[Rfam]
RNA sequence: GCUUUCUCCGGUGGUCGAAGACCGGGGUAAAGCGGAGCGUCUAACAGUGUCUGCUGUUAGGCGCUCAACUAUUU
Numbered sequence: 001g002c003u004u005u006c007u008c009c010g011g012u013g014g015u016c017g018a019a020g021a022c023c024g025g026g027g028u029a030a031a032g033c034g035g036a037g038c039g040u041c042u043a044a045c046a047g048u049g050u051c052u053g054c055u056g057u058u059a060g061g062c063g064c065u066c067a068a069c070u071a072u073u074u
Stems, first nucleotide, its partner, number of pairs: 001033003006027004010022001036065013